This 108-nucleotide sequence from Clostridium cadaveris belongs to the Rfam family "TPP riboswitch aptamer (THI element)". The match comes from Rfam's covariance-model search (73 bits). NCBI's taxonomy places the organism under Bacteria, Bacillati, Bacillota, Clostridia, Clostridium.

[Rfam]
RNA sequence: AAUAUAUUUCAGGGGAGCUUGUACGGCAGGCUGAGAGGAAGUAAUCAAACUUCGACCCUUAAACCUGAUGUGGGUAAUGCCACCGUAGGAAGAGAAAGCGCUUGCUUA
Number, nucleotide and partner (000 for none) at each position: 001a000002a000003u000004a000005u000006a000007u095008u094009u093010c092011a059012g058013g057014g056015g000016a000017g031018c030019u029020u028021g027022u000023a000024c000025g000026g000027c021028a020029g019030g018031c017032u000033g000034a000035g000036a000037g000038g053039a052040a051041g050042u049043a000044a000045u000046c000047a000048a000049a042050c041051u040052u039053c038054g000055a000056c014057c013058c012059u011060u000061a000062a000063a000064c089065c088066u087067g086068a000069u000070g083071u082072g081073g080074g000075u000076a000077a000078u000079g000080c073081c072082a071083c070084c000085g000086u067087a066088g065089g064090a000091a000092g010093a009094g008095a007096a000097a000098g000099c000100g000101c000102u000103u000104g000105c000106u000107u000108a000